[Rfam]
RNA sequence: GGUCAUACUUUUCCACAGCUUUCUUGAACUUCUUAUGCAUUGUAAAGUUCUCCAUGUCCAUAAUUUUAAGCCCUAGAAGUUCAAGAAAGCUGUGGGAGAAUAUGGCAA
Numbered sequence: 001g002g003u004c005a006u007a008c009u010u011u012u013c014c015a016c017a018g019c020u021u022u023c024u025u026g027a028a029c030u031u032c033u034u035a036u037g038c039a040u041u042g043u044a045a046a047g048u049u050c051u052c053c054a055u056g057u058c059c060a061u062a063a064u065u066u067u068a069a070g071c072c073c074u075a076g077a078a079g080u081u082c083a084a085g086a087a088a089g090c091u092g093u094g095g096g097a098g099a100a101u102a103u104g105g106c107a108a
Stems, first nucleotide, its partner, number of pairs: 003105005013095003017091006024084004029079005
RNA: MIR396 microRNA precursor family